[Rfam]
RNA: Small nucleolar RNA SNORA40
Organism: Nannospalax galili
RNA sequence: GGCACUUUGUGUGUGUUUGUUCAAUGGGUGAACAGAGGCAGGAAAGACAGGCGCAAAAAUAAAUCCUCUCUUGCAUCCCAGAACCCAUUGUUCAGUGUGAGUUUUGAUACAUACAAGAAGGAAUAUG
Number, nucleotide and partner (000 for none) at each position: 001g000002g054003c053004a000005c051006u050007u049008u047009g000010u045011g000012u000013g039014u038015g000016u036017u035018u034019g033020u032021u000022c000023a000024a000025u030026g000027g000028g000029u000030g025031a000032a020033c019034a018035g017036a016037g000038g014039c013040a000041g000042g000043a000044a000045a010046g000047a008048c000049a007050g006051g005052c000053g003054c002055a000056a000057a000058a000059a000060u000061a000062a000063a124064u123065c000066c121067u120068c000069u118070c117071u116072u115073g114074c000075a000076u000077c000078c000079c106080a105081g104082a103083a102084c101085c000086c099087a098088u097089u000090g000091u000092u000093c000094a000095g000096u000097g088098u087099g086100a000101g084102u083103u082104u081105u080106g079107a000108u000109a000110c000111a000112u000113a000114c073115a072116a071117g070118a069119a000120g067121g066122a000123a064124u063125a000126u000127g000